RNA sequence: UCCGGAGGAAGCUCACCGUCGAGGCCACGCACGGGGUGCCCGUCACCCGCUGUCCCCGCCUCGGGGAAGGUCUGAGGGAAGGGCCGGAGGCGGCUCCAGCAGAGCCCCGCCCGCGUAGGGUGGGUGAGCCACCAGCAAGGGGGGGCACCGCGCGGGUCGGCCCGGGCAGGAGAAGCCGAGCGGCUGCGGUGCUGAUCCGAGAGCCGGGGCGGAUGCUCGUGGCCCCGCGGUGCUUUGAGACAGACUCACGGCCGGCGCGCUGAGUCCAAUGGGUGAGGUGGGGCAGAGCCGCACAACCUAAUUCAGACUACUCUCCGCCGGA
Numbered sequence: 001u002c003c004g005g006a007g008g009a010a011g012c013u014c015a016c017c018g019u020c021g022a023g024g025c026c027a028c029g030c031a032c033g034g035g036g037u038g039c040c041c042g043u044c045a046c047c048c049g050c051u052g053u054c055c056c057c058g059c060c061u062c063g064g065g066g067a068a069g070g071u072c073u074g075a076g077g078g079a080a081g082g083g084c085c086g087g088a089g090g091c092g093g094c095u096c097c098a099g100c101a102g103a104g105c106c107c108c109g110c111c112c113g114c115g116u117a118g119g120g121u122g123g124g125u126g127a128g129c130c131a132c133c134a135g136c137a138a139g140g141g142g143g144g145g146c147a148c149c150g151c152g153c154g155g156g157u158c159g160g161c162c163c164g165g166g167c168a169g170g171a172g173a174a175g176c177c178g179a180g181c182g183g184c185u186g187c188g189g190u191g192c193u194g195a196u197c198c199g200a201g202a203g204c205c206g207g208g209g210c211g212g213a214u215g216c217u218c219g220u221g222g223c224c225c226c227g228c229g230g231u232g233c234u235u236u237g238a239g240a241c242a243g244a245c246u247c248a249c250g251g252c253c254g255g256c257g258c259g260c261u262g263a264g265u266c267c268a269a270u271g272g273g274u275g276a277g278g279u280g281g282g283g284c285a286g287a288g289c290c291g292c293a294c295a296a297c298c299u300a301a302u303u304c305a306g307a308c309u310a311c312u313c314u315c316c317g318c319c320g321g322a
Base pairs, nucleotide, nucleotide: 001322002321003320004319007316008315009314012277013276014275015274016273017272020063021062022061023060024059034048035047036046037045038044072306073305074304075303076302082253083252084251085250092106093105094104095103096102107123108122109121110120111119112118124249125248126247127246128245130243144234145233146232147231148230149229150228151227152226278294279293280292282290283289284288
A member of the RNA family "Nuclear RNase P" from Odontophorus gujanensis, 322 nucleotides long. A search with the family's covariance model found it, with a score of 170 bits. It is annotated as a ribozyme.